[Rfam]
RNA sequence: CCUCUGGAGAGACUCCCCCUGUGGGAGCACCGAAGGAGCAAGCCGGUCGUAGAUCUCCUCCACGACCGGUGAAACUCUCAGGUAAAAGGACAGAGG
Numbered sequence: 001c002c003u004c005u006g007g008a009g010a011g012a013c014u015c016c017c018c019c020u021g022u023g024g025g026a027g028c029a030c031c032g033a034a035g036g037a038g039c040a041a042g043c044c045g046g047u048c049g050u051a052g053a054u055c056u057c058c059u060c061c062a063c064g065a066c067c068g069g070u071g072a073a074a075c076u077c078u079c080a081g082g083u084a085a086a087a088g089g090a091c092a093g094a095g096g
Base pairs, nucleotide, nucleotide: 001096002095003094004093005092006091013027014026015025016024029083030082031081032079033078036077037076038075042070043069044068045067046066047065048064049063050062
RNA: Glycine riboswitch aptamer